[Rfam]
RNA sequence: GUUUGCGUCUCUGAAGCUACCUCCUCCCAGGCUUCAGGGAUGUUCCGCAGGGGCUACCUCCUCCCAGGCCCCACGGAGAAAAAGCGCCCGCCGGUACCUCCUCCCACCGGCGGGCGUUUUUA
Number, nucleotide and partner (000 for none) at each position: 001g000002u000003u000004u000005g000006c000007g041008u040009c039010u000011c037012u036013g035014a034015a033016g032017c031018u000019a000020c000021c000022u000023c000024c000025u000026c000027c000028c000029a000030g000031g017032c016033u015034u014035c013036a012037g011038g000039g009040a008041u007042g000043u000044u000045c000046c075047g074048c000049a000050g072051g071052g070053g069054c068055u067056a000057c000058c000059u000060c000061c000062u000063c000064c000065c000066a000067g055068g054069c053070c052071c051072c050073a000074c047075g046076g000077a000078g000079a000080a000081a000082a000083a000084g117085c116086g115087c114088c113089c112090g111091c110092c109093g108094g107095u000096a000097c000098c000099u000100c000101c000102u000103c000104c000105c000106a000107c094108c093109g092110g091111c090112g089113g088114g087115c086116g085117u084118u000119u000120u000121u000122a000

Record summary
This 122-nucleotide RNA sequence from Breoghania corrubedonensis belongs to the Rfam family "Alphaproteobacterial ar14". Lineage of the source: Bacteria > Pseudomonadota > Hyphomicrobiales > Stappiaceae > Breoghania. By type it is a small RNA. Smr14C2 was renamed NfeR1 (Nodule Formation Efficiency RNA) highly expressed in salt stress and during the symbiotic interaction on legume roots. Rfam 15.1 lists 784 matches to the family in 332 species. It scores 76 bits against the family's covariance model.